[Rfam]
RNA sequence: GGUUUGCGUUGGUGCAAAUCUAAUCAAUUCAAUUUAGAAUUGAAGAUGAUAAAAAAUUCCUCAUUGGGAACAAAUGGUUAUCCAUUAAGCGAGGAAAUACUAU
Dot-bracket structure: ........((((.......))))....................................(((((.((.(((.....))).)).)).....)))..........
Description: Shown here is a 103-nucleotide sequence from Saltera sarcocolla, a member of the family "Plastid-rps12 3UTR RNA". NCBI's taxonomy places the organism under Eukaryota, Spermatophyta, eudicotyledons, Gunneridae, Saltera. Plastid rpl20 is a non-coding RNA (ncRNA) recognised in plastids. It was found in the three prime untranslated region (3UTR) of rps12 gene, its 3UTR location sugest a role in transcript maduration. By type it is a cis-regulatory element. The base pairs follow the family's consensus structure, which was predicted with LocARNA.